[Rfam]
This 62-nucleotide sequence from Bacillus cereus belongs to the Rfam family "RAGATH-18 RNA". The family's RNA type in Rfam is small RNA.

RNA sequence: CCCUCGGAGUGUUAGAUCAAACGAAAGUAGCUUCUGCGAAAUCGGACACUUAGAACAGGGAA
Numbered sequence: 001c002c003c004u005c006g007g008a009g010u011g012u013u014a015g016a017u018c019a020a021a022c023g024a025a026a027g028u029a030g031c032u033u034c035u036g037c038g039a040a041a042u043c044g045g046a047c048a049c050u051u052a053g054a055a056c057a058g059g060g061a062a
Stems, first nucleotide, its partner, number of pairs: 001060004009049005022044003030037002